[Rfam]
RNA sequence: GUGGUCUGAGUGCAGUGGUGUUUGCAACUAAUUGAUUACACCAGUUAGAGAUUUCUUUGUUCCUUCUCCACUCCCCCUGCUUCACUUGACUAGCCUAAA
Numbered sequence: 001g002u003g004g005u006c007u008g009a010g011u012g013c014a015g016u017g018g019u020g021u022u023u024g025c026a027a028c029u030a031a032u033u034g035a036u037u038a039c040a041c042c043a044g045u046u047a048g049a050g051a052u053u054u055c056u057u058u059g060u061u062c063c064u065u066c067u068c069c070a071c072u073c074c075c076c077c078u079g080c081u082u083c084a085c086u087u088g089a090c091u092a093g094c095c096u097a098a099a
Stems, first nucleotide, its partner, number of pairs: 002092005008087002012083001014078002017075002020073001026061003030057002
Shown here is a 99-nucleotide RNA sequence from Cebus imitator, a member of the family "Y RNA". Y RNAs are components of the Ro ribonucleoprotein particle (Ro RNP), in association with Ro60 and La proteins. The Y RNAs and Ro60 and La proteins are well conserved, but the function of the Ro RNP is not known. In humans the RNA component can be one of four small RNAs -- hY1, hY3, hY4 and hY5. These small RNAs are predicted to fold into a conserved secondary structure containing three stem structures. The largest of the four, hY1, contains an additional hairpin. This family includes a significant number of annotated pseudogenes and the model is expected to discriminate poorly between real and Y RNA related pseudogenes. Taxonomically the source falls in Cebus (Eukaryota, Chordata, Euteleostomi, Eutheria). The family's RNA type in Rfam is non-coding RNA gene.